A member of the RNA family "TD-2 RNA" from Treponema pedis, 95 nucleotides long.
The family is grouped with related families in Rfam's "TD (Treponema denticola) motifs".
On this family, see Weinberg et al., Nucleic Acids Res 2007: "Identification of 22 candidate structured RNAs in bacteria using the CMfinder comparative genomics pipeline".
[Rfam]
RNA sequence: GCGGACAGGACGUCCGCCGGAACAAAUCCGGUGCGAGUUUUGUGCAAACAAAACUCGGAGUAAGAAUUGUACAGGACGUACAAUUCUUACUCACC
Numbered sequence: 001g002c003g004g005a006c007a008g009g010a011c012g013u014c015c016g017c018c019g020g021a022a023c024a025a026a027u028c029c030g031g032u033g034c035g036a037g038u039u040u041u042g043u044g045c046a047a048a049c050a051a052a053a054c055u056c057g058g059a060g061u062a063a064g065a066a067u068u069g070u071a072c073a074g075g076a077c078g079u080a081c082a083a084u085u086c087u088u089a090c091u092c093a094c095c
Stems, first nucleotide, its partner, number of pairs: 001017006034057010059091014
Rfam 15.1 lists 310 matches to the family in 11 species.